[Rfam]
The family of this 142-nucleotide sequence from Mesitornis unicolor is "Small Cajal body specific RNA 11".
Pairs were carried over by alignment from the consensus structure, which was predicted with RNAalifold.
RNA sequence: CUGUCCUGACCUCAUCCUGUCUGUUUCCCCCUCACCAGAGCUGUGGUGGUGGGGUCUGGGGGUGGACACAGAUCAACUUACCUCUCAAGUUAGGAGGGCUGCCAAAGACAUGUGCAAGCUCUUAAAGGCAAGAGAGGACACC
Dot-bracket structure: .(((((...((...............((.(.((((..........)))).).)).....))..)))))............((((((...((..(((((((((((......)).)).)))))))..))....)))))).....
Notes: scaRNAs are a specific class of small nuclear RNAs which localise to the Cajal bodies and guide the modification of RNA polymerase II transcribed spliceosomal RNAs U1, U2, U4, U5 and U12. ACA57 belongs to the H/ACA box class of guide RNAs as it has the predicted hairpin-hinge-hairpin-tail structure, conserved H/ACA-box motifs and is found associated with GAR1. ACA57 is predicted to guide the pseudouridylation of the U5 spliceosomal RNA at position U43. Rfam links the family to the GO terms nucleolus, Cajal body and RNA processing.